[Rfam]
RNA sequence: UCUGGCAAUGAUGACCCACUUGCCCUCACUGAGAACAAAGUUCGGUAAUGAGAAUCUUUGUUAAUGGACUCAAGUUCUGAGCCAGC
Numbered sequence: 001u002c003u004g005g006c007a008a009u010g011a012u013g014a015c016c017c018a019c020u021u022g023c024c025c026u027c028a029c030u031g032a033g034a035a036c037a038a039a040g041u042u043c044g045g046u047a048a049u050g051a052g053a054a055u056c057u058u059u060g061u062u063a064a065u066g067g068a069c070u071c072a073a074g075u076u077c078u079g080a081g082c083c084a085g086c
Stems, first nucleotide, its partner, number of pairs: 002085005
Dot-bracket structure: .(((((..........................................................................))))).
Small nucleolar RNA SNORD103/SNORD85: an 86-nucleotide RNA. The base pairs follow the family's consensus structure. It is one of the family's seed sequences. The family's RNA type in Rfam is C/D-box small nucleolar RNA. A reference for the family is Vitali et al. (2003), "Identification of 13 novel human modification guide RNAs", Nucleic Acids Res. The family has 41 seed sequences and 1,349 matches in Rfam 15.1.